[Rfam]
Record summary
The family of this 98-nucleotide RNA sequence from Gloeobacterales cyanobacterium ES-bin-313 is "TPP riboswitch aptamer (THI element)". Rfam 15.1 lists 16,130 matches to the family in 8,693 species. The base pairs follow the family's consensus structure, which is taken from published work. Lineage of the source: Bacteria > Bacillati > Cyanobacteriota > Cyanophyceae > Gloeobacterales. It scores 67 bits against the family's covariance model. Gene Ontology term of the family: thiamine pyrophosphate binding.
RNA sequence: GCGUGAAGCUAGGGGUGCUACCUACGUGGAAGCUGAGAUCACACCCUUAGAACCUGAACUGGGUAAUGCCAGCGCUAGGGAAGCUACUAGGAGUCACA
Numbered sequence: 001g002c003g004u005g006a007a008g009c010u011a012g013g014g015g016u017g018c019u020a021c022c023u024a025c026g027u028g029g030a031a032g033c034u035g036a037g038a039u040c041a042c043a044c045c046c047u048u049a050g051a052a053c054c055u056g057a058a059c060u061g062g063g064u065a066a067u068g069c070c071a072g073c074g075c076u077a078g079g080g081a082a083g084c085u086a087c088u089a090g091g092a093g094u095c096a097c098a
Base pairs, nucleotide, nucleotide: 007085008084009083010082011047012046013045014044016041017033018032019031021029053079054078055077056076059072060071061070062069